RNA: Mammalian CPEB3 ribozyme
Organism: Crocodylus porosus
RNA sequence: AACUACUAUAACGGCCAUAGCAGAAGUGCUCAUGUCACGGCCCUAUCAGAUUCUAAUGAAACUUCAAAUUCUGUU
Numbered sequence: 001a002a003c004u005a006c007u008a009u010a011a012c013g014g015c016c017a018u019a020g021c022a023g024a025a026g027u028g029c030u031c032a033u034g035u036c037a038c039g040g041c042c043c044u045a046u047c048a049g050a051u052u053c054u055a056a057u058g059a060a061a062c063u064u065c066a067a068a069u070u071c072u073g074u075u
Base pairs, nucleotide, nucleotide: 013042014041015040016039019075020074021073022072023071024070025069026038027037028036048063049062051060052059053058